The record is a 365-nucleotide RNA sequence from Metabacillus indicus, which matches "transfer-messenger RNA" in Rfam. For this family Rfam cites "Phylogenetic analysis of tmRNA secondary structure" (Williams and Bartel, RNA, 1996). From the family's description: Bacterial tmRNA, also known as 10Sa RNA or SsrA, is named for its dual tRNA and mRNA-like properties. Its role is to liberate the mRNA from a stalled ribosome. To accomplish this part of the tmRNA is used as a reading frame that ends in a translation stop signal. The broken mRNA is replaced in the ribosome by the tmRNA and translation of the tmRNA leads to addition of a proteolysis tag to the incomplete protein enabling recognition by a protease.

RNA sequence: GGGGACGUUACGGAUUCGACAGGGAUAGUUCGAGCUGUAGCUGCGAGUCGAGGGGAUCGUCCUCGUCAAAACGUCAAAGCCAAUAAUAACUGGCAAACAAAACAACAACUUCGCUUUAGCUGCUUAAUAACAGUCUAUAGCGGUUCCUCCCUCCAUCGCCCAUGUGGUAGGGUAAGGGACUCACUCUAAGUGGGCUACGCCUGAUGCCUCCGUCUGGGGAUAAGGGAAGAGAUCAAUCAGACUAGUUGCUCCGACGCCCGUUGAUAGGCAUACGAGUCAGCGAAUCGCAAAUAUAUCAACUAUACUCGUAGACGCUAUGGUGCCGAUGUUUCUGGACGUGGGUUCGACUCCCACCGUCUCCACCA
Numbered sequence: 001g002g003g004g005a006c007g008u009u010a011c012g013g014a015u016u017c018g019a020c021a022g023g024g025a026u027a028g029u030u031c032g033a034g035c036u037g038u039a040g041c042u043g044c045g046a047g048u049c050g051a052g053g054g055g056a057u058c059g060u061c062c063u064c065g066u067c068a069a070a071a072c073g074u075c076a077a078a079g080c081c082a083a084u085a086a087u088a089a090c091u092g093g094c095a096a097a098c099a100a101a102a103c104a105a106c107a108a109c110u111u112c113g114c115u116u117u118a119g120c121u122g123c124u125u126a127a128u129a130a131c132a133g134u135c136u137a138u139a140g141c142g143g144u145u146c147c148u149c150c151c152u153c154c155a156u157c158g159c160c161c162a163u164g165u166g167g168u169a170g171g172g173u174a175a176g177g178g179a180c181u182c183a184c185u186c187u188a189a190g191u192g193g194g195c196u197a198c199g200c201c202u203g204a205u206g207c208c209u210c211c212g213u214c215u216g217g218g219g220a221u222a223a224g225g226g227a228a229g230a231g232a233u234c235a236a237u238c239a240g241a242c243u244a245g246u247u248g249c250u251c252c253g254a255c256g257c258c259c260g261u262u263g264a265u266a267g268g269c270a271u272a273c274g275a276g277u278c279a280g281c282g283a284a285u286c287g288c289a290a291a292u293a294u295a296u297c298a299a300c301u302a303u304a305c306u307c308g309u310a311g312a313c314g315c316u317a318u319g320g321u322g323c324c325g326a327u328g329u330u331u332c333u334g335g336a337c338g339u340g341g342g343u344u345c346g347a348c349u350c351c352c353a354c355c356g357u358c359u360c361c362a363c364c365a
Stems, first nucleotide, its partner, number of pairs: 001361007020334008029325001032323001034321008044308005049065005055075003115139001117137002119134004143180006149172004153167004158195006200225003204221002212242005245281004250276001252274002256269003260300004264294003338354005